[Rfam]
RNA sequence: GGGGCUGCACUGGUUUCGACGCGGGUACGGACGCGCAGUGGGGCAUGCCGAGCUUAGUGUGCUCGUAAAACUGACUAAAACAAACUAACUGCAAACGACGAACGUUUCGCACUCGCUGCUUAAUAACCAGUGAGCCCUACAACAGCAGGCCGAUGGGCUGGGCAAGGGGUCUUUAGCGCAAGUUGAAGGCUCCCGGCUGUAGGGUCAUACACAUCGGCUGGCCUGGUACCGGGCACCUUGGUAUCAGGCGAGACAAUAGGAUGCUGGCAACCUGUAUAGCGUGCUGCUGCGCGAUACGGGAAGUGAGACUCAAAUCAGACGGCUAAGCAUGUAGAACUACGCGAAGAAGGCUUGCGGACGGGGGUUCAAAUCCCCCCAGCUCCACCA
Number, nucleotide and partner (000 for none) at each position: 001g383002g382003g381004g380005c379006u378007g377008c000009a000010c000011u000012g000013g000014u000015u000016u000017c000018g000019a000020c356021g355022c354023g353024g352025g351026u350027a000028c000029g000030g000031a000032c000033g000034c343035g342036c341037a000038g340039u339040g338041g337042g000043g000044c331045a330046u329047g328048c327049c065050g064051a063052g062053c061054u078055u077056a076057g075058u074059g000060u000061g053062c052063u051064c050065g049066u000067a000068a000069a000070a000071c000072u000073g000074a058075c057076u056077a055078a054079a000080a000081c000082a000083a000084a000085c000086u000087a000088a000089c000090u000091g000092c000093a000094a000095a000096c000097g000098a000099c000100g000101a000102a000103c000104g000105u000106u000107u000108c000109g000110c000111a000112c134113u133114c132115g131116c130117u129118g128119c000120u000121u000122a000123a000124u000125a000126a000127c000128c118129a117130g116131u115132g114133a113134g112135c204136c203137c202138u201139a200140c199141a000142a000143c160144a159145g158146c157147a000148g000149g218150c217151c216152g215153a214154u213155g212156g000157g146158c145159u144160g143161g000162g000163c000164a000165a000166g000167g000168g000169g000170u000171c000172u000173u000174u000175a000176g000177c000178g000179c000180a000181a000182g000183u000184u000185g000186a000187a000188g000189g000190c000191u000192c000193c000194c000195g000196g000197c000198u000199g140200u139201a138202g137203g136204g135205u000206c000207a000208u000209a000210c000211a000212c155213a154214u153215c152216g151217g150218c149219u000220g000221g249222c248223c247224u246225g245226g244227u243228a242229c241230c000231g000232g265233g264234c263235a262236c000237c000238u000239u000240g000241g229242u228243a227244u226245c225246a224247g223248g222249c221250g000251a000252g000253a000254c000255a000256a000257u000258a000259g000260g000261a000262u235263g234264c233265u232266g000267g000268c303269a000270a000271c300272c299273u298274g297275u296276a295277u294278a000279g292280c291281g290282u000283g323284c322285u321286g320287c318288u317289g316290c281291g280292c279293g000294a277295u276296a275297c274298g273299g272300g271301a000302a000303g268304u000305g000306a000307g000308a000309c000310u000311c000312a000313a000314a000315u000316c289317a288318g287319a000320c286321g285322g284323c283324u000325a000326a000327g048328c047329a046330u045331g044332u000333a000334g000335a000336a000337c041338u040339a039340c038341g036342c035343g034344a000345a000346g000347a000348a000349g000350g026351c025352u024353u023354g022355c021356g020357g000358a000359c000360g376361g375362g374363g373364g372365u000366u000367c000368a000369a000370a000371u000372c364373c363374c362375c361376c360377c007378a006379g005380c004381u003382c002383c001384a000385c000386c000387a000
Annotation: Shown here is a 387-nucleotide RNA sequence from Polaromonas sp. JS666, a member of the family "transfer-messenger RNA". Rfam links the family to the GO term RNA catabolic process. It is annotated as a non-coding RNA gene. Bacterial tmRNA, also known as 10Sa RNA or SsrA, is named for its dual tRNA and mRNA-like properties. Its role is to liberate the mRNA from a stalled ribosome. To accomplish this part of the tmRNA is used as a reading frame that ends in a translation stop signal. The broken mRNA is replaced in the ribosome by the tmRNA and translation of the tmRNA leads to addition of a proteolysis tag to the incomplete protein enabling recognition by a protease. The family's consensus secondary structure is taken from published work.